Rfam assigns this 67-nucleotide RNA from Ralstonia solanacearum to the family "Fluoride riboswitch aptamer (crcB RNA motif)". Pairs were carried over by alignment from the consensus structure, which is taken from published work. The organism belongs to Ralstonia solanacearum species complex, within Bacteria.

[Rfam]
RNA sequence: CCGGCUUGCGGAGAUGGCAUACCUCCCUUAACCGCCGAUCACCUCGGCUGAUGAUGCCUACAAGUUC
Number, nucleotide and partner (000 for none) at each position: 001c000002c000003g000004g000005c000006u000007u000008g000009c000010g026011g025012a024013g023014a000015u000016g058017g057018c056019a055020u054021a000022c000023c013024u012025c011026c010027c000028u000029u000030a000031a000032c000033c000034g048035c047036c046037g045038a000039u000040c000041a000042c000043c000044u000045c037046g036047g035048c034049u000050g000051a000052u000053g000054a020055u019056g018057c017058c016059u000060a000061c000062a000063a000064g000065u000066u000067c000